[Rfam]
A member of the RNA family "Bacterial RNase P class A" from Parapusillimonas granuli, 416 nucleotides long. The source organism's lineage runs through Bacteria, Pseudomonadota, Betaproteobacteria, Burkholderiales and Parapusillimonas. A search with the family's covariance model found it, with a score of 188 bits. It is annotated as a ribozyme. Pairs were carried over by alignment from the consensus structure, which is taken from published work. Clan: RNaseP clan.
RNA sequence: GAGGCAGGCCGGGCAAUCGCGGCGCCGCAAGGCGUCGAGGAAGGUCCGGACUCCGCAGAGCGGGAUAGCGGCUAACGGCCGUCCGGCAAGGCGCGCGCAAUCCGUUGCGGCGCCGAGCCGAGGAACAGGGCCACAGAGACGAGUCUGCGGCGAGGGCGCGCCUAGGCGCGCACCGGCAUGGCCACCUCCAUGCCGCGCGGUCGGGCAACCGGCCGCGGCGCUGCAGGGUGAAACGCGGCAACCUCUAUCCGGAGCAACAUCAAAUAGGCAUGCGUCCGGCCUUCGGGCCGAAAGGGUGGCUCGCCCGAGCAUGCGGGUAGAUGGCUAGAGCCCGGCAGCAAUGCCGGGCCCAGAGGAAUGAUUGCCCGCCAGGCUCGCCUGGCGUACAGAAUCCGGCCUACAGGCCUGUCUCACUU
Numbered sequence: 001g002a003g004g005c006a007g008g009c010c011g012g013g014c015a016a017u018c019g020c021g022g023c024g025c026c027g028c029a030a031g032g033c034g035u036c037g038a039g040g041a042a043g044g045u046c047c048g049g050a051c052u053c054c055g056c057a058g059a060g061c062g063g064g065a066u067a068g069c070g071g072c073u074a075a076c077g078g079c080c081g082u083c084c085g086g087c088a089a090g091g092c093g094c095g096c097g098c099a100a101u102c103c104g105u106u107g108c109g110g111c112g113c114c115g116a117g118c119c120g121a122g123g124a125a126c127a128g129g130g131c132c133a134c135a136g137a138g139a140c141g142a143g144u145c146u147g148c149g150g151c152g153a154g155g156g157c158g159c160g161c162c163u164a165g166g167c168g169c170g171c172a173c174c175g176g177c178a179u180g181g182c183c184a185c186c187u188c189c190a191u192g193c194c195g196c197g198c199g200g201u202c203g204g205g206c207a208a209c210c211g212g213c214c215g216c217g218g219c220g221c222u223g224c225a226g227g228g229u230g231a232a233a234c235g236c237g238g239c240a241a242c243c244u245c246u247a248u249c250c251g252g253a254g255c256a257a258c259a260u261c262a263a264a265u266a267g268g269c270a271u272g273c274g275u276c277c278g279g280c281c282u283u284c285g286g287g288c289c290g291a292a293a294g295g296g297u298g299g300c301u302c303g304c305c306c307g308a309g310c311a312u313g314c315g316g317g318u319a320g321a322u323g324g325c326u327a328g329a330g331c332c333c334g335g336c337a338g339c340a341a342u343g344c345c346g347g348g349c350c351c352a353g354a355g356g357a358a359u360g361a362u363u364g365c366c367c368g369c370c371a372g373g374c375u376c377g378c379c380u381g382g383c384g385u386a387c388a389g390a391a392u393c394c395g396g397c398c399u400a401c402a403g404g405c406c407u408g409u410c411u412c413a414c415u416u
Stems, first nucleotide, its partner, number of pairs: 001412010011401001012366007020037007042399003046396005051254004058302004063250005068082005083122001084120004123245002128243002130239003145227002147224006155216001258323004268314006294306004330349008